[Rfam]
RNA sequence: CCGAUUUCGCCUAUCUAAUGCUCAGCGUUGCAGAGCGGCCUUCGGGCCGUUCGAGACUGCGAUCAUAUAAGACCUGGCGGACGGGGGCUGCAAUGCCCCCCGCCUCCACCAAAAGACCUCGUGAUGAGCGGGGCAUGGUCUUCGGACCAUCAGGCCAAACCUCCUUUGGAGUUCAGGGCUUGUCCUAUGGGGGCGAAUUAGGAUCGACGUGGGUGAAUAAGGGUCGUUUAGAUGCUGGGUGAGGUACGCCCGCUGAUCCCCUUCCGGGGUGAAGCUCGUCCGACAACUUGUGAAUGUCGCAAAUGACAACCACAAUGCUCAGGAUCUCCGCGUAGCUGCCUAACGGUGGCCGUGGUGAAACUAGGCGGGGCUGGAAUGGCCUAGCAACAGAAUAUUCCCAGA
Numbered sequence: 001c002c003g004a005u006u007u008c009g010c011c012u013a014u015c016u017a018a019u020g021c022u023c024a025g026c027g028u029u030g031c032a033g034a035g036c037g038g039c040c041u042u043c044g045g046g047c048c049g050u051u052c053g054a055g056a057c058u059g060c061g062a063u064c065a066u067a068u069a070a071g072a073c074c075u076g077g078c079g080g081a082c083g084g085g086g087g088c089u090g091c092a093a094u095g096c097c098c099c100c101c102g103c104c105u106c107c108a109c110c111a112a113a114a115g116a117c118c119u120c121g122u123g124a125u126g127a128g129c130g131g132g133g134c135a136u137g138g139u140c141u142u143c144g145g146a147c148c149a150u151c152a153g154g155c156c157a158a159a160c161c162u163c164c165u166u167u168g169g170a171g172u173u174c175a176g177g178g179c180u181u182g183u184c185c186u187a188u189g190g191g192g193g194c195g196a197a198u199u200a201g202g203a204u205c206g207a208c209g210u211g212g213g214u215g216a217a218u219a220a221g222g223g224u225c226g227u228u229u230a231g232a233u234g235c236u237g238g239g240u241g242a243g244g245u246a247c248g249c250c251c252g253c254u255g256a257u258c259c260c261c262u263u264c265c266g267g268g269g270u271g272a273a274g275c276u277c278g279u280c281c282g283a284c285a286a287c288u289u290g291u292g293a294a295u296g297u298c299g300c301a302a303a304u305g306a307c308a309a310c311c312a313c314a315a316u317g318c319u320c321a322g323g324a325u326c327u328c329c330g331c332g333u334a335g336c337u338g339c340c341u342a343a344c345g346g347u348g349g350c351c352g353u354g355g356u357g358a359a360a361c362u363a364g365g366c367g368g369g370g371c372u373g374g375a376a377u378g379g380c381c382u383a384g385c386a387a388c389a390g391a392a393u394a395u396u397c398c399c400a401g402a
Base pairs, nucleotide, nucleotide: 035050036049037048038047039046054236055235059227060226061225062224063223064222073213074212075211077210078209079208083100084099085098086097087096101195102194103193104192105191106190107189238251239250244284247282248281368382369381370380371379373399374398376396
Dot-bracket structure: ..................................(((((......)))))...((...((((((........(((.(((...(((((........)))))(((((((.................................................................................)))))))............))))))........)))))).......)).((....[..[[.)).............................]].]...................................................................................((((.[[.[..)))).............].]]...
The family of this 402-nucleotide sequence from Skermanella aerolata is "Alphaproteobacteria transfer-messenger RNA".
Rfam classes the family as a non-coding RNA gene.
The base pairs follow the family's consensus structure, which is taken from published work.
The match comes from Rfam's covariance-model search (86 bits).
Lineage of the source: Bacteria > Pseudomonadati > Pseudomonadota > Alphaproteobacteria > Skermanella.